The family of this 371-nucleotide RNA sequence from Roseibium alexandrii is "Alphaproteobacteria transfer-messenger RNA". NCBI's taxonomy places the organism under Bacteria, Pseudomonadota, Hyphomicrobiales, Stappiaceae, Roseibium. It scores 300 bits against the family's covariance model. The base pairs follow the family's consensus structure, which is taken from published work.
[Rfam]
RNA sequence: GCCCUUUCAAUUCAAACCGAAAGUGCCUAUAUCAGGGGUGCUGGUUCGCCAGCUAUGGCAAUAAAUUGUCAGUGUAAUAAACCUAUCGGACCCGGGGGCGGUACCCGGCGCCUCCACCCAAGCCCAUAAGGCUUAAAGCUUCGAGCCCAUAUGGGUUUCGGCGGGGGCGAAAUAGGAUCGACGAGGGCGUAAAGACUGUGCUUUUGCUCGGCAUUGUACCACCGUUAUCGGGCUAUCUCAGUAGUUGCAAAUGACAACACUGCUAUGGACAACGCUGUAGCUGCGUAAUGCGGUUCCGGUAGUCCACUAAGUCCUGUUGGUUAGCCCCUUCAGGCGGGGUUCGAAGGCACCUGGCAACAGAAGCCUUCACU
Numbered sequence: 001g002c003c004c005u006u007u008c009a010a011u012u013c014a015a016a017c018c019g020a021a022a023g024u025g026c027c028u029a030u031a032u033c034a035g036g037g038g039u040g041c042u043g044g045u046u047c048g049c050c051a052g053c054u055a056u057g058g059c060a061a062u063a064a065a066u067u068g069u070c071a072g073u074g075u076a077a078u079a080a081a082c083c084u085a086u087c088g089g090a091c092c093c094g095g096g097g098g099c100g101g102u103a104c105c106c107g108g109c110g111c112c113u114c115c116a117c118c119c120a121a122g123c124c125c126a127u128a129a130g131g132c133u134u135a136a137a138g139c140u141u142c143g144a145g146c147c148c149a150u151a152u153g154g155g156u157u158u159c160g161g162c163g164g165g166g167g168c169g170a171a172a173u174a175g176g177a178u179c180g181a182c183g184a185g186g187g188c189g190u191a192a193a194g195a196c197u198g199u200g201c202u203u204u205u206g207c208u209c210g211g212c213a214u215u216g217u218a219c220c221a222c223c224g225u226u227a228u229c230g231g232g233c234u235a236u237c238u239c240a241g242u243a244g245u246u247g248c249a250a251a252u253g254a255c256a257a258c259a260c261u262g263c264u265a266u267g268g269a270c271a272a273c274g275c276u277g278u279a280g281c282u283g284c285g286u287a288a289u290g291c292g293g294u295u296c297c298g299g300u301a302g303u304c305c306a307c308u309a310a311g312u313c314c315u316g317u318u319g320g321u322u323a324g325c326c327c328c329u330u331c332a333g334g335c336g337g338g339g340u341u342c343g344a345a346g347g348c349a350c351c352u353g354g355c356a357a358c359a360g361a362a363g364c365c366u367u368c369a370c371u
Stems, first nucleotide, its partner, number of pairs: 040053005057208005068201002070198004082187003086184003092108005109169007209224003214235001216233001219231002337352004343368006